Overview: Guanidine-I riboswitch aptamer: a 107-nucleotide RNA sequence from Methylobrevis pamukkalensis.
RNA sequence: GACAUCAGUUUCUAGGGUUCCGGCGCCGAAGGGCGUGCUGGUCCGAGAGAAACGCCCCGGCGGGGAGAAAUCCGCCGGGUCCACGGCGGGAUAAAAGCCCGGGAGGC
Numbered sequence: 001g002a003c004a005u006c007a008g009u010u011u012c013u014a015g016g017g018u019u020c021c022g023g024c025g026c027c028g029a030a031g032g033g034c035g036u037g038c039u040g041g042u043c044c045g046a047g048a049g050a051a052a053c054g055c056c057c058c059g060g061c062g063g064g065g066a067g068a069a070a071u072c073c074g075c076c077g078g079g080u081c082c083a084c085g086g087c088g089g090g091a092u093a094a095a096a097g098c099c100c101g102g103g104a105g106g107c
Stems, first nucleotide, its partner, number of pairs: 008053005015044002020041002022038001023036005056079009082102001084105001088100003
Dot-bracket structure: .......(((((..((...((((((((....))))).).)).))....)))))..(((((((((......)))))))))..(.[...(((.......))).)..]..

The source organism's lineage runs through Bacteria, Pseudomonadati, Alphaproteobacteria, Hyphomicrobiales and Methylobrevis. A reference for the family is Battaglia et al. (2017), "Structural basis for guanidine sensing by the ykkC family of riboswitches", RNA. From the family's description: This family represents a conserved RNA structure found upstream of the ykkC and yxkD genes in Bacillus subtilis and related genes in other bacteria.